[Rfam]
RNA: Flavo-1 RNA
RNA sequence: UUGCGUUAGCGAUAGUAAUGACAUCCUUUUUUUGCUGCCAUAUAUGGCAAAAAAAGAUAUAAUGGAUAGCGCGACCCUUG
Numbered sequence: 001u002u003g004c005g006u007u008a009g010c011g012a013u014a015g016u017a018a019u020g021a022c023a024u025c026c027u028u029u030u031u032u033u034g035c036u037g038c039c040a041u042a043u044a045u046g047g048c049a050a051a052a053a054a055a056g057a058u059a060u061a062a063u064g065g066a067u068a069g070c071g072c073g074a075c076c077c078u079u080g
Stems, first nucleotide, its partner, number of pairs: 009072003013068002018063002023058003029053008